[Rfam]
RNA sequence: AGUGUCUGCAUAAUCCCCAGCUUAGGUCUCCUGUGGCCCCUGGUGCGAUAACUGUGGCCACAGCAGAGGGAGCAUUAAACUCAUUGCCCACGGGAAAGUGUGGGGAGUGAUACCCAUGUUCCUAGAAUC
Numbered sequence: 001a002g003u004g005u006c007u008g009c010a011u012a013a014u015c016c017c018c019a020g021c022u023u024a025g026g027u028c029u030c031c032u033g034u035g036g037c038c039c040c041u042g043g044u045g046c047g048a049u050a051a052c053u054g055u056g057g058c059c060a061c062a063g064c065a066g067a068g069g070g071a072g073c074a075u076u077a078a079a080c081u082c083a084u085u086g087c088c089c090a091c092g093g094g095a096a097a098g099u100g101u102g103g104g105g106a107g108u109g110a111u112a113c114c115c116a117u118g119u120u121c122c123u124a125g126a127a128u129c
Stems, first nucleotide, its partner, number of pairs: 006054001008052001010049001013044002020037003069122001071120005081110005089102003
Shown here is a 129-nucleotide RNA sequence from Bucco capensis, a member of the family "Small nucleolar RNA ACA64". The match comes from Rfam's covariance-model search (46 bits). Its family is annotated with RNA processing and nucleolus in the Gene Ontology. By type it is an H/ACA-box small nucleolar RNA. The literature on the family includes a 2006 paper in RNA by Schattner et al., "A computational screen for mammalian pseudouridylation guide H/ACA RNAs".